RNA sequence: AAUGCCCCUACGUACUGGUAAGUCUUAAAGCUAGUAUCUGUUCUUAUCAGUUUAAUAUUUGAUAUGUGAGCCACCGACCCACACGAUAUUAACUCAAUUUUUUUACGGAAAAGAGUCCAUUAAGGUAGCUUGCUACCUGGGCUCUCAAACGUAACCUAUGUGAUGCACUACAGUAUGGGCUUGGCACACCGCAC
Numbered sequence: 001a002a003u004g005c006c007c008c009u010a011c012g013u014a015c016u017g018g019u020a021a022g023u024c025u026u027a028a029a030g031c032u033a034g035u036a037u038c039u040g041u042u043c044u045u046a047u048c049a050g051u052u053u054a055a056u057a058u059u060u061g062a063u064a065u066g067u068g069a070g071c072c073a074c075c076g077a078c079c080c081a082c083a084c085g086a087u088a089u090u091a092a093c094u095c096a097a098u099u100u101u102u103u104u105a106c107g108g109a110a111a112a113g114a115g116u117c118c119a120u121u122a123a124g125g126u127a128g129c130u131u132g133c134u135a136c137c138u139g140g141g142c143u144c145u146c147a148a149a150c151g152u153a154a155c156c157u158a159u160g161u162g163a164u165g166c167a168c169u170a171c172a173g174u175a176u177g178g179g180c181u182u183g184g185c186a187c188a189c190c191g192c193a194c
Stems, first nucleotide, its partner, number of pairs: 007022001009020003045064006066082003070078001072076001112145007125136004151185002154182001156178006
Dot-bracket structure: ......(.(((......))).)......................((((((........)))))).(((.(.(...).).))).............................(((((((......((((....))))..))))))).....((.(.((((((...........))))))...).)).........
RNA: U2 spliceosomal RNA